[Rfam]
RNA: L31-Actinobacteria ribosomal protein leader
Organism: Nocardioides terrae
RNA sequence: CCGGCUCCGGUUCACCCCACGUGUCGCGUGAGGACCCGGGCC
Numbered sequence: 001c002c003g004g005c006u007c008c009g010g011u012u013c014a015c016c017c018c019a020c021g022u023g024u025c026g027c028g029u030g031a032g033g034a035c036c037c038g039g040g041c042c
Base pairs, nucleotide, nucleotide: 003042004041005040007039008038009037010036015033016032018030019029020028021027022026